[Rfam]
RNA sequence: UGCUCGCAGAUGCUCGCAUUUGCGCAUGUUUGUGGAUGAUACUACUCAUAUCCCAAGCGGAGGCAGCGUUGG
Numbered sequence: 001u002g003c004u005c006g007c008a009g010a011u012g013c014u015c016g017c018a019u020u021u022g023c024g025c026a027u028g029u030u031u032g033u034g035g036a037u038g039a040u041a042c043u044a045c046u047c048a049u050a051u052c053c054c055a056a057g058c059g060g061a062g063g064c065a066g067c068g069u070u071g072g
Stems, first nucleotide, its partner, number of pairs: 006023007024067002027065005034058001037055002
Dot-bracket structure: .....(((((((....)))))))((.(((((..(..((...............))..)..))))))).....
A member of the RNA family "Hepatitis C virus stem-loop SL2531 and SL2549AU", 72 nucleotides long. The sequence is in the family's curated seed alignment. It is annotated as a cis-regulatory element. Pairs were carried over by alignment from the consensus structure, which was predicted with RNAfold. For this family Rfam cites "The Coding Region of the HCV Genome Contains a Network of Regulatory RNA Structures" (Pirakitikulr et al., Mol Cell, 2016).